Shown here is a 107-nucleotide sequence from Brassica carinata, a member of the family "Plant small nucleolar RNA R71".
RNA sequence: AAGCCAUGGUGGGGGCAUUGAGCUUGAUAGCCUUUGAACCUCUCCCAUGCUUCACUAAAGCUUUCCAAGUUCUUCUGCUAGAAGCUAGAGAUCUCAUUUCUUAACUU
Numbered sequence: 001a002a003g004c005c006a007u008g009g010u011g012g013g014g015g016c017a018u019u020g021a022g023c024u025u026g027a028u029a030g031c032c033u034u035u036g037a038a039c040c041u042c043u044c045c046c047a048u049g050c051u052u053c054a055c056u057a058a059a060g061c062u063u064u065c066c067a068a069g070u071u072c073u074u075c076u077g078c079u080a081g082a083a084g085c086u087a088g089a090g091a092u093c094u095c096a097u098u099u100c101u102u103a104a105c106u107u
Base pairs, nucleotide, nucleotide: 001107003105006101057074058073060071
NCBI's taxonomy places the organism under Eukaryota, Streptophyta, Spermatophyta, Mesangiospermae, Brassica. By type it is a C/D-box small nucleolar RNA.